Plastid-ccsA-ndhD-1 3UTR RNA: a 55-nucleotide sequence from Bassecoia hookeri. The source organism's lineage runs through Eukaryota, Embryophyta, Euphyllophyta, campanulids and Bassecoia. For this family Rfam cites "Retrograde signaling in plants: A critical review focusing on the GUN pathway and beyond" (Richter et al., Plant Commun, 2023). The family is grouped with related families in Rfam's "Plastid-ccsA_ndhD 3UTR RNA clan".
[Rfam]
RNA sequence: AAUUGGCGAGAACCCUGUGAAUCACUAUGCUACUUGAUUGACAGGGUUCUCACAA
Number, nucleotide and partner (000 for none) at each position: 001a000002a000003u000004u000005g000006g053007c000008g051009a050010g049011a048012a047013c046014c045015c044016u043017g042018u041019g000020a039021a038022u037023c036024a035025c000026u000027a000028u000029g000030c000031u000032a000033c000034u000035u024036g023037a022038u021039u020040g000041a018042c017043a016044g015045g014046g013047u012048u011049c010050u009051c008052a000053c006054a000055a000